RNA sequence: AUAUGGUAAUGGCUGCAUGGCUCAGUAGGCUGAAUCAUAAAGAGAUCUACCAUUUGUCUGAUGUAAAA
Numbered sequence: 001a002u003a004u005g006g007u008a009a010u011g012g013c014u015g016c017a018u019g020g021c022u023c024a025g026u027a028g029g030c031u032g033a034a035u036c037a038u039a040a041a042g043a044g045a046u047c048u049a050c051c052a053u054u055u056g057u058c059u060g061a062u063g064u065a066a067a068a
Base pairs, nucleotide, nucleotide: 002065003064004063006038007037009035010034013028014027015026016025043055044054045053046052
Notes
The record is a 68-nucleotide RNA sequence from Otolemur garnettii, which matches "Small nucleolar RNA SNORD77" in Rfam. Rfam describes the family as follows. U77 belongs to the C/D family of snoRNAs. For this family Rfam cites "Guide RNAs with 5' caps and novel box C/D snoRNA-like domains for modification of snRNAs in metazoa" (Tycowski et al., Curr Biol, 2004). Its Rfam clan is "SNORD77 clan".